The record is a 71-nucleotide RNA sequence from Flavobacterium sp. A45, which matches "Flavo-1 RNA" in Rfam. The family has 201 seed sequences and 7,497 matches in Rfam 15.1.
RNA sequence: UGUUAGCCCCGGUUGAAGUGAAAAUCCUCCCGAUUUUUUUCGGGAGAUUGUAACGGAAAACGGGACGAUAU
Numbered sequence: 001u002g003u004u005a006g007c008c009c010c011g012g013u014u015g016a017a018g019u020g021a022a023a024a025u026c027c028u029c030c031c032g033a034u035u036u037u038u039u040u041c042g043g044g045a046g047a048u049u050g051u052a053a054c055g056g057a058a059a060a061c062g063g064g065a066c067g068a069u070a071u
Stems, first nucleotide, its partner, number of pairs: 009063003013059002018054002023049004029044005